Shown here is a 129-nucleotide sequence from Nematostella vectensis, a member of the family "U11 spliceosomal RNA". Taxonomically the source falls in Nematostella (Eukaryota, Eumetazoa, Anthozoa, Edwardsiidae).
RNA sequence: UAAAAGGGUCUUUGCAGUCAUUUGCACGUGGGUCUUUGACGGACCUGCGCGGAAUCGCUAUCAAGAGAUUUCGGAGGCAUAAUCUUUGGACUUUACAGGCAGUUGGCGUCAUUGUUCGCCGACGCCCCC
Numbered sequence: 001u002a003a004a005a006g007g008g009u010c011u012u013u014g015c016a017g018u019c020a021u022u023u024g025c026a027c028g029u030g031g032g033u034c035u036u037u038g039a040c041g042g043a044c045c046u047g048c049g050c051g052g053a054a055u056c057g058c059u060a061u062c063a064a065g066a067g068a069u070u071u072c073g074g075a076g077g078c079a080u081a082a083u084c085u086u087u088g089g090a091c092u093u094u095a096c097a098g099g100c101a102g103u104u105g106g107c108g109u110c111a112u113u114g115u116u117c118g119c120c121g122a123c124g125c126c127c128c129c
Base pairs, nucleotide, nucleotide: 008078009077010076011075012074013026014025015024016023017022027049028048029047030046031045032044033043034042035041050073051072052071053070054069055068056067098126099125100124102123103122104121105120106119107118108117110114
The base pairs follow the family's consensus structure, which is taken from published work. Rfam classes the family as a spliceosomal small nuclear RNA.